[Rfam]
RNA: Glycine riboswitch aptamer
RNA sequence: AUGAGAUUAGCGAGAGAGUCCUUUAUACGAAAAGGCGCCGAAGAAGAAAUUUAAGAAAUGCCAAUUUUUAGAGAAGCUUUCAGGCAAAAAUAUCGCUAAUUGAUG
Numbered sequence: 001a002u003g004a005g006a007u008u009a010g011c012g013a014g015a016g017a018g019u020c021c022u023u024u025a026u027a028c029g030a031a032a033a034g035g036c037g038c039c040g041a042a043g044a045a046g047a048a049a050u051u052u053a054a055g056a057a058a059u060g061c062c063a064a065u066u067u068u069u070a071g072a073g074a075a076g077c078u079u080u081c082a083g084g085c086a087a088a089a090a091u092a093u094c095g096c097u098a099a100u101u102g103a104u105g
Stems, first nucleotide, its partner, number of pairs: 006100008020035004037085003040081002044079003050072008